[Rfam]
RNA sequence: AAAGCAGGGCGCAAUUACAGUACUUCAUUUGUGGAAGCACUGCCAUUACCCUGCUGAGAGCAGCAUCCUGCUUCAGAGAGACACAUCAUCUUACCUCUGUGGGAUAGAGACACUCUGAAGCAGGAACAACU
Numbered sequence: 001a002a003a004g005c006a007g008g009g010c011g012c013a014a015u016u017a018c019a020g021u022a023c024u025u026c027a028u029u030u031g032u033g034g035a036a037g038c039a040c041u042g043c044c045a046u047u048a049c050c051c052u053g054c055u056g057a058g059a060g061c062a063g064c065a066u067c068c069u070g071c072u073u074c075a076g077a078g079a080g081a082c083a084c085a086u087c088a089u090c091u092u093a094c095c096u097c098u099g100u101g102g103g104a105u106a107g108a109g110a111c112a113c114u115c116u117g118a119a120g121c122a123g124g125a126a127c128a129a130c131u
Stems, first nucleotide, its partner, number of pairs: 003055006018042004023037004066125011082109001084107001088105006